[Rfam]
RNA: U1 spliceosomal RNA
Organism: Chlamydomonas reinhardtii
RNA sequence: AUACUUACCUGGCCCGCUUCUCGAGGUGGUCACCAUGGCCUCGGUUGUGUGGUCGGUCUUCACCUUGCACUUUGUGAGGGCCUUCCGCAGUCGGCCCUUCGGGUGUCCGGCAGGGCUAAAUUUUUGUUAGGCUGAGGACCCGCGCUAUGCGCGGCCUCGGC
Numbered sequence: 001a002u003a004c005u006u007a008c009c010u011g012g013c014c015c016g017c018u019u020c021u022c023g024a025g026g027u028g029g030u031c032a033c034c035a036u037g038g039c040c041u042c043g044g045u046u047g048u049g050u051g052g053u054c055g056g057u058c059u060u061c062a063c064c065u066u067g068c069a070c071u072u073u074g075u076g077a078g079g080g081c082c083u084u085c086c087g088c089a090g091u092c093g094g095c096c097c098u099u100c101g102g103g104u105g106u107c108c109g110g111c112a113g114g115g116c117u118a119a120a121u122u123u124u125u126g127u128u129a130g131g132c133u134g135a136g137g138a139c140c141c142g143c144g145c146u147a148u149g150c151g152c153g154g155c156c157u158c159g160g161c
Base pairs, nucleotide, nucleotide: 012116013115014114015113016048017047020044021043023042024041025040026039027038049088050087051086055082056081057080059078060077061076062075063074090111091110092109093107094106095105097103098102132160133159134158135157136156141153142152143151144150